[Rfam]
RNA sequence: GCCACUGCUCACACCCACUGCCAGCGCCUGGCGCUGGUCCCGAUCACUUGGCGCUGUCAGUGGGUGCAAGCAGCAGCUG
Numbered sequence: 001g002c003c004a005c006u007g008c009u010c011a012c013a014c015c016c017a018c019u020g021c022c023a024g025c026g027c028c029u030g031g032c033g034c035u036g037g038u039c040c041c042g043a044u045c046a047c048u049u050g051g052c053g054c055u056g057u058c059a060g061u062g063g064g065u066g067c068a069a070g071c072a073g074c075a076g077c078u079g
Stems, first nucleotide, its partner, number of pairs: 005073005012066009022056007

This 79-nucleotide RNA sequence from Cnephaeus nilssonii belongs to the Rfam family "mir-9198 microRNA precursor family". The source organism's lineage runs through Eukaryota, Chordata, Gnathostomata, Vespertilionidae and Cnephaeus. The family has 6 seed sequences and 64 matches in Rfam 15.1.